The record is a 320-nucleotide RNA sequence from Aquimarina algiphila, which matches "Bacterial RNase P class A" in Rfam. A search with the family's covariance model found it, with a score of 196 bits. Its family is annotated with dimeric ribonuclease P complex, ribonuclease P activity and tRNA processing in the Gene Ontology. Taxonomically the source falls in Aquimarina (Bacteria, Pseudomonadati, Bacteroidota, Flavobacteriaceae).
RNA sequence: AAAGCAGAUCACCUUAUCGCUGUCCGUUUUUGACGGAGAGAGGAAAGUCCGGACACCAUAGCACAGUAUAGCGGGUAACUCCCGUCAUUCUGAGUAAUCAGAAGAGGACAAGUGCAACAGAAAGUAUGUACAGGUAAUGCUGUAGUGAAACCAGGUAAACUCUAUACGGUGCAACGCCAUGUAAACUAGCUUUUGAGGGUUGUGCGCCCAAUGUUAGAGGGUAGGCGGUUUGAGCUAAUAAGUAAUUGUUAGUCUAGAUAAAUGAUAAGGAUAUUCGUUUCGGCGAGGAAACAGAAUCCGGCUUAUGAUCUGCUUUUUUA
Numbered sequence: 001a002a003a004g005c006a007g008a009u010c011a012c013c014u015u016a017u018c019g020c021u022g023u024c025c026g027u028u029u030u031u032g033a034c035g036g037a038g039a040g041a042g043g044a045a046a047g048u049c050c051g052g053a054c055a056c057c058a059u060a061g062c063a064c065a066g067u068a069u070a071g072c073g074g075g076u077a078a079c080u081c082c083c084g085u086c087a088u089u090c091u092g093a094g095u096a097a098u099c100a101g102a103a104g105a106g107g108a109c110a111a112g113u114g115c116a117a118c119a120g121a122a123a124g125u126a127u128g129u130a131c132a133g134g135u136a137a138u139g140c141u142g143u144a145g146u147g148a149a150a151c152c153a154g155g156u157a158a159a160c161u162c163u164a165u166a167c168g169g170u171g172c173a174a175c176g177c178c179a180u181g182u183a184a185a186c187u188a189g190c191u192u193u194u195g196a197g198g199g200u201u202g203u204g205c206g207c208c209c210a211a212u213g214u215u216a217g218a219g220g221g222u223a224g225g226c227g228g229u230u231u232g233a234g235c236u237a238a239u240a241a242g243u244a245a246u247u248g249u250u251a252g253u254c255u256a257g258a259u260a261a262a263u264g265a266u267a268a269g270g271a272u273a274u275u276c277g278u279u280u281c282g283g284c285g286a287g288g289a290a291a292c293a294g295a296a297u298c299c300g301g302c303u304u305a306u307g308a309u310c311u312g313c314u315u316u317u318u319u320a
Stems, first nucleotide, its partner, number of pairs: 001316011012270007020040002023037006045304003049301005054171004061205004066167005071085005086106001088103006107162002112160002114156002129144005175227004186217005197209004234253008